[Rfam]
RNA sequence: UACUUUUGCGCACGAAUUAAGAAAAUCUUGAUUCCUACAUAAUAAUCAUUUAAAUAAUAUUGGAAUG
Numbered sequence: 001u002a003c004u005u006u007u008g009c010g011c012a013c014g015a016a017u018u019a020a021g022a023a024a025a026u027c028u029u030g031a032u033u034c035c036u037a038c039a040u041a042a043u044a045a046u047c048a049u050u051u052a053a054a055u056a057a058u059a060u061u062g063g064a065a066u067g
Base pairs, nucleotide, nucleotide: 014034015033016032017031018030019029020028021027
Dot-bracket structure: .............((((((((.....)))))))).................................

The family of this 67-nucleotide RNA is "S15-Flavobacteria ribosomal protein leader". On this family, see Eckert and Weinberg, BMC Microbiol 2020: "Discovery of 20 novel ribosomal leader candidates in bacteria and archaea". Clan: Ribosomal Protein S15 Leader clan. By type it is a cis-regulatory leader.